About this RNA:
c-di-AMP riboswitch aptamer (ydaO/yuaA leader): a 169-nucleotide RNA from Streptomyces apricus. Lineage of the source: Bacteria > Actinomycetota > Actinomycetes > Kitasatosporales > Streptomyces. A search with the family's covariance model found it, with a score of 67 bits.
RNA sequence: GGGCGCCCUCCGCCGAAUCCGUCCGCCCCCGUGGCGCCGGAACCGGGGACCCACCGGAACAUGGGGUGAAUCGGCCCGACUCCCGUACGGGACAGGGCCGUAGGGCAAACCUUCCGAAGCACCCGCCCGAACCCGACAGCUAACUCGGUAGGCGGAUGACGGAAGGAGA
Numbered sequence: 001g002g003g004c005g006c007c008c009u010c011c012g013c014c015g016a017a018u019c020c021g022u023c024c025g026c027c028c029c030c031g032u033g034g035c036g037c038c039g040g041a042a043c044c045g046g047g048g049a050c051c052c053a054c055c056g057g058a059a060c061a062u063g064g065g066g067u068g069a070a071u072c073g074g075c076c077c078g079a080c081u082c083c084c085g086u087a088c089g090g091g092a093c094a095g096g097g098c099c100g101u102a103g104g105g106c107a108a109a110c111c112u113u114c115c116g117a118a119g120c121a122c123c124c125g126c127c128c129g130a131a132c133c134c135g136a137c138a139g140c141u142a143a144c145u146c147g148g149u150a151g152g153c154g155g156a157u158g159a160c161g162g163a164a165g166g167a168g169a
Stems, first nucleotide, its partner, number of pairs: 011154004018041003042149006052063002064134003072100006103128004